[Rfam]
RNA sequence: GAAGGAGCUUGUUUAGCAGCUGAGUGAUUUAAAGCAAUCAAAUUCCUUUAGCUUUAAAGCCUGCGGCUGUUGAAUGAGCUCUUGC
Numbered sequence: 001g002a003a004g005g006a007g008c009u010u011g012u013u014u015a016g017c018a019g020c021u022g023a024g025u026g027a028u029u030u031a032a033a034g035c036a037a038u039c040a041a042a043u044u045c046c047u048u049u050a051g052c053u054u055u056a057a058a059g060c061c062u063g064c065g066g067c068u069g070u071u072g073a074a075u076g077a078g079c080u081c082u083u084g085c
Base pairs, nucleotide, nucleotide: 003083004082005081006080007079008078009077010076011075012074013073014072015071016070017069018068019067020066021065022064024062026060028058029057030056031055032054033053034052035051
mir-1781 microRNA precursor family: an 85-nucleotide sequence from Nycticryphes semicollaris. The family's consensus secondary structure was predicted with RNAalifold. Lineage of the source: Eukaryota > Eumetazoa > Euteleostomi > Rostratulidae > Nycticryphes.